[Rfam]
RNA: msiK RNA
Organism: Streptomyces candidus
RNA sequence: UCACCUCACUCCCUUACAACGGAUCGUCCGGCACGUUCCUGCCGGUGAAGGAGACGC
Dot-bracket structure: .........(((.(((...........((((((......))))))))).))).....
Numbered sequence: 001u002c003a004c005c006u007c008a009c010u011c012c013c014u015u016a017c018a019a020c021g022g023a024u025c026g027u028c029c030g031g032c033a034c035g036u037u038c039c040u041g042c043c044g045g046u047g048a049a050g051g052a053g054a055c056g057c
Stems, first nucleotide, its partner, number of pairs: 010052003014048003028045006